[Rfam]
RNA: PyrR binding site
RNA sequence: AAAUCCUUUAAUACGGUCCAGAGAGGCUGAAAAGGGCUAUGUGAUAUUUUUAAGCUAAUAUCUUUGCUUUGUCAUGCCCUUUUGUCCUCUGUGACGGAAGGGCUUUUAUU
Numbered sequence: 001a002a003a004u005c006c007u008u009u010a011a012u013a014c015g016g017u018c019c020a021g022a023g024a025g026g027c028u029g030a031a032a033a034g035g036g037c038u039a040u041g042u043g044a045u046a047u048u049u050u051u052a053a054g055c056u057a058a059u060a061u062c063u064u065u066g067c068u069u070u071g072u073c074a075u076g077c078c079c080u081u082u083u084g085u086c087c088u089c090u091g092u093g094a095c096g097g098a099a100g101g102g103c104u105u106u107u108a109u110u
Stems, first nucleotide, its partner, number of pairs: 004036006014029005050071001052069004057064002074105001076103011